[Rfam]
RNA: sroD RNA
RNA sequence: CUACGUGACGAAUCGGUCAGUAAAGGCAACAAUAACGCCUGAGCUCCGAGUCAGUCGCCCUAACGCCGGUUCGCCGGCGUUUUUUA
Number, nucleotide and partner (000 for none) at each position: 001c000002u000003a000004c000005g000006u000007g000008a000009c000010g000011a000012a000013u000014c000015g060016g058017u057018c000019a000020g038021u037022a000023a000024a000025g000026g000027c000028a000029a000030c000031a000032a000033u000034a000035a000036c000037g021038c020039c000040u000041g000042a000043g000044c000045u000046c000047c000048g000049a000050g000051u000052c000053a000054g000055u000056c000057g017058c016059c000060c015061u000062a081063a080064c079065g078066c077067c076068g075069g074070u000071u000072c000073g000074c069075c068076g067077g066078c065079g064080u063081u062082u000083u000084u000085u000086a000